[Rfam]
RNA sequence: GUUGCUUCUUUGAUAAUAGAGUGACCAGUUUAAUUUAUUAGUCACUUAUAAUGAGAAGCAUAUAUCAAAGAAAUUGCCAGUUUUAAACAGCAUAAUUCGCUCUUUAGCAUUGUGCUACCUGUCUCCUGGUAAAUUU
Numbered sequence: 001g002u003u004g005c006u007u008c009u010u011u012g013a014u015a016a017u018a019g020a021g022u023g024a025c026c027a028g029u030u031u032a033a034u035u036u037a038u039u040a041g042u043c044a045c046u047u048a049u050a051a052u053g054a055g056a057a058g059c060a061u062a063u064a065u066c067a068a069a070g071a072a073a074u075u076g077c078c079a080g081u082u083u084u085a086a087a088c089a090g091c092a093u094a095a096u097u098c099g100c101u102c103u104u105u106a107g108c109a110u111u112g113u114g115c116u117a118c119c120u121g122u123c124u125c126c127u128g129g130u131a132a133a134u135u136u
Base pairs, nucleotide, nucleotide: 003060004059005058006057007056008055017050018049020047021045022044023043024042025041076130077129078128079127080126089116090115091114093112094111095110096109

small nucleolar RNA snoR137: a 136-nucleotide RNA sequence from Manihot esculenta. Its family is annotated with RNA processing and nucleolus in the Gene Ontology. Taxonomically the source falls in Manihot (Eukaryota, Viridiplantae, Mesangiospermae, Euphorbiaceae). Rfam classes the family as an H/ACA-box small nucleolar RNA. For this family Rfam cites "Mining small RNA sequencing data: a new approach to identify small nucleolar RNAs in Arabidopsis" (Chen and Wu, Nucleic Acids Res, 2009).